[Rfam]
RNA sequence: GGAUCGAUGAUGAGUCCUCUAUAAAACAUCUCCUUGAAAAGCUGAACAAAAUGAGUGAGAAUCAUACCGGUCAGCUCUCAUCGGAUCUGAGGUCC
Numbered sequence: 001g002g003a004u005c006g007a008u009g010a011u012g013a014g015u016c017c018u019c020u021a022u023a024a025a026a027c028a029u030c031u032c033c034u035u036g037a038a039a040a041g042c043u044g045a046a047c048a049a050a051a052u053g054a055g056u057g058a059g060a061a062u063c064a065u066a067c068c069g070g071u072c073a074g075c076u077c078u079c080a081u082c083g084g085a086u087c088u089g090a091g092g093u094c095c
Base pairs, nucleotide, nucleotide: 001095002094003093004092005091027057028056029055031054032053034049035048036047

The record is a 95-nucleotide RNA sequence from Papio anubis, which matches "Small nucleolar RNA SNORD116" in Rfam. Rfam links the family to the GO terms RNA processing and nucleolus. Lineage of the source: Eukaryota > Opisthokonta > Euteleostomi > Cercopithecoidea > Papio. Pairs were carried over by alignment from the consensus structure, which was predicted with PFOLD.